[Rfam]
RNA sequence: GAGCUGUACACCCCACAACGGAUCGUUCGGCACGUACCUGCCGAUGGAGGAGAACACU
Numbered sequence: 001g002a003g004c005u006g007u008a009c010a011c012c013c014c015a016c017a018a019c020g021g022a023u024c025g026u027u028c029g030g031c032a033c034g035u036a037c038c039u040g041c042c043g044a045u046g047g048a049g050g051a052g053a054a055c056a057c058u
Stems, first nucleotide, its partner, number of pairs: 009050001011049001013047003027044006
RNA: msiK RNA